Shown here is a 280-nucleotide sequence from Medioppia subpectinata, a member of the family "Nuclear RNase P". Lineage of the source: Eukaryota > Metazoa > Bilateria > Oribatida > Medioppia. Rfam classes the family as a ribozyme. The base pairs follow the family's consensus structure, which is taken from published work. Ribonuclease P (RNase P) is a ubiquitous endoribonuclease, found in archaea, bacteria and eukarya as well as chloroplasts and mitochondria. Its best characterised activity is the generation of mature 5'-ends of tRNAs by cleaving the 5'-leader elements of precursor-tRNAs. Cellular RNase Ps are ribonucleoproteins.
RNA sequence: UUCGCACAAGAGGUGACAGUCGUAGGGCUCGUCUGAGCUCUACAUAGGCUAUGCCUUUGGGAAGGUCUGAGAGUGCCGUUCAUUCAGUCCUCGCGGGACUUCUUCUUAACGAAGAGUCGGUCAAUAGAAACGAUACGCAACUCAUUGUCGACGAAGUGAGUGACGACUUUGUGUCCGACACUAUGGCGUGAGUUGUGGUGAAACGAUGGCCGGCGGACAGCGACGUUAGCUCAAUGUGCGAAGUGGUUGCAAACCAUAACUCAAUUCAGACUAUUCCGAC
Numbered sequence: 001u002u003c004g005c006a007c008a009a010g011a012g013g014u015g016a017c018a019g020u021c022g023u024a025g026g027g028c029u030c031g032u033c034u035g036a037g038c039u040c041u042a043c044a045u046a047g048g049c050u051a052u053g054c055c056u057u058u059g060g061g062a063a064g065g066u067c068u069g070a071g072a073g074u075g076c077c078g079u080u081c082a083u084u085c086a087g088u089c090c091u092c093g094c095g096g097g098a099c100u101u102c103u104u105c106u107u108a109a110c111g112a113a114g115a116g117u118c119g120g121u122c123a124a125u126a127g128a129a130a131c132g133a134u135a136c137g138c139a140a141c142u143c144a145u146u147g148u149c150g151a152c153g154a155a156g157u158g159a160g161u162g163a164c165g166a167c168u169u170u171g172u173g174u175c176c177g178a179c180a181c182u183a184u185g186g187c188g189u190g191a192g193u194u195g196u197g198g199u200g201a202a203a204c205g206a207u208g209g210c211c212g213g214c215g216g217a218c219a220g221c222g223a224c225g226u227u228a229g230c231u232c233a234a235u236g237u238g239c240g241a242a243g244u245g246g247u248u249g250c251a252a253a254c255c256a257u258a259a260c261u262c263a264a265u266u267c268a269g270a271c272u273a274u275u276c277c278g279a280c
Base pairs, nucleotide, nucleotide: 001242002241003240004239005238006237007236009058010057011056012055013054023042024041025040026039027038028037067269068268069267070266071265078218079217080216081215086100087099088098089097090096101115102114103113104112105111116214117213118212119211120210121209122208134197135196136195243257244256245255246254247253